[Rfam]
Nucleotides: 043
Stems, first nucleotide, its partner, number of pairs: 001033003005029002
Number, partner (000 for none) and nucleotide at each position: 001033c002032c003031a004000c005029g006028g007000u008000g009000g010000c011000g012000g013000u014000g015000g016000c017000u018000g019000g020000g021000g022000a023000c024000a025000a026000u027000c028006c029005c030000a031003u032002g033001g034000u035000g036000g037000u038000g039000g040000u041000u042000g043000g
Rfam assigns this 43-nucleotide sequence from Urocitellus parryii to the family "Prion pseudoknot". By type it is a cis-regulatory element. The family's consensus secondary structure is taken from published work. This family represents a predicted pseudoknot structure found in prion protein mRNA. It has been suggested that the family has a possible effect in prion protein translation. Its family is annotated with translation in the Gene Ontology. On this family, see Barrette et al., Nucleic Acids Res 2001: "Pseudoknots in prion protein mRNAs confirmed by comparative sequence analysis and pattern searching".